[Rfam]
This 72-nucleotide RNA sequence from Chenopodium quinoa belongs to the Rfam family "tRNA". The family's consensus secondary structure is taken from published work. The match comes from Rfam's covariance-model search (46 bits).
RNA sequence: AACCUUUUAGCUCAAUUGGCAGAGCACUAUGCAAAUGCAUAGAAGAUGUAGGUUCGAUUCCUACGUAGGUUA
Numbered sequence: 001a002a003c004c005u006u007u008u009a010g011c012u013c014a015a016u017u018g019g020c021a022g023a024g025c026a027c028u029a030u031g032c033a034a035a036u037g038c039a040u041a042g043a044a045g046a047u048g049u050a051g052g053u054u055c056g057a058u059u060c061c062u063a064c065g066u067a068g069g070u071u072a
Base pairs, nucleotide, nucleotide: 001071002070003069004068005067007065010025011024012023013022027042028041029040030039031038048064049063050062051061052060